[Rfam]
RNA: glmS glucosamine-6-phosphate activated ribozyme aptamer
RNA sequence: UCCCAUCACAAAGCGCCAGCGCCUGUCCUAUACGGGCAGGACGACGAGGAGAAGGGAGUAUCGAAAGGACAGAACUCUGUCCCGUAAAUUCGGCGGAUGCCCUUCCGUGCCCGGUCCGGGCGCGUACUCAGCCUACAAAUAUGCGGGUGACCGCAAAACAGAAGGGCUGGGACCGGAUAAC
Number, nucleotide and partner (000 for none) at each position: 001u000002c000003c000004c000005a000006u000007c000008a000009c000010a000011a000012a000013g000014c000015g000016c000017c000018a000019g000020c000021g000022c040023c039024u038025g037026u036027c035028c034029u000030a000031u000032a000033c000034g028035g027036g026037c025038a024039g023040g022041a000042c000043g000044a000045c000046g000047a000048g000049g000050a000051g105052a104053a103054g102055g101056g000057a000058g000059u000060a000061u093062c092063g091064a090065a000066a000067g000068g000069a000070c000071a000072g000073a000074a000075c000076u000077c000078u000079g000080u000081c000082c000083c000084g000085u000086a000087a000088a000089u000090u064091c063092g062093g061094c000095g000096g000097a000098u000099g000100c000101c055102c054103u053104u052105c051106c124107g123108u122109g121110c120111c119112c000113g000114g000115u000116c000117c000118g000119g111120g110121c109122g108123c107124g106125u000126a000127c171128u170129c169130a168131g167132c166133c165134u000135a000136c000137a000138a000139a000140u000141a000142u155143g154144c153145g152146g151147g000148u000149g000150a000151c146152c145153g144154c143155a142156a000157a000158a000159c000160a000161g000162a000163a000164g000165g133166g132167c131168u130169g129170g128171g127172a000173c000174c000175g000176g000177a000178u000179a000180a000181c000